[Rfam]
RNA: epsC RNA
Organism: Paenibacillus tyrphae
RNA sequence: GGGUAAUGUCUACUGUACCUUUAUCACUGUAGGCACUCGGCCAUGCUGUGGGUGUAGUCACCUUAGACGCUAGUCGUCAAGGGUGUGGUGAGAGGCGGGGUUAGAUGCCCC
Number, nucleotide and partner (000 for none) at each position: 001g020002g019003g018004u017005a000006a000007u035008g034009u033010c032011u031012a030013c029014u000015g000016u000017a004018c003019c002020u001021u000022u000023a000024u000025c000026a000027c000028u000029g013030u012031a011032g010033g009034c008035a007036c094037u093038c092039g000040g089041c088042c087043a086044u085045g084046c083047u082048g000049u000050g063051g062052g061053u060054g059055u000056a000057g000058u000059c054060a053061c052062c051063u050064u000065a000066g078067a077068c076069g075070c000071u000072a000073g000074u000075c069076g068077u067078c066079a000080a000081g000082g047083g046084u045085g044086u043087g042088g041089u040090g000091a000092g038093a037094g036095g000096c000097g111098g110099g109100g108101u107102u000103a000104g000105a000106u000107g101108c100109c099110c098111c097